[Rfam]
RNA sequence: CUGUCCAGUAAGGCCACGCGCCACAUCCGCUCCGUGUGGCAAGACCUUCUGGAAGACA
Number, nucleotide and partner (000 for none) at each position: 001c000002u000003g000004u053005c052006c051007a050008g049009u000010a047011a000012g045013g000014c043015c000016a000017c000018g000019c000020g000021c039022c038023a037024c036025a035026u034027c000028c000029g000030c000031u000032c000033c000034g026035u025036g024037u023038g022039g021040c000041a000042a000043g014044a000045c012046c000047u010048u000049c008050u007051g006052g005053a004054a000055g000056a000057c000058a000
Rfam assigns this 58-nucleotide RNA from Orthohepacivirus hominis to the family "Hepatitis C virus stem-loop SL8001 RNA". The literature on the family includes a 2016 paper in Mol Cell by Pirakitikulr et al., "The Coding Region of the HCV Genome Contains a Network of Regulatory RNA Structures". The family's consensus secondary structure was predicted with RNAfold. Lineage of the source: Viruses > Riboviria > Orthornavirae > Hepaciviridae > Orthohepacivirus. Even though Hepatitis C virus (HCV) SL8001 is not required for overall replication, conformational changes in this motif tune the initial rate of replication.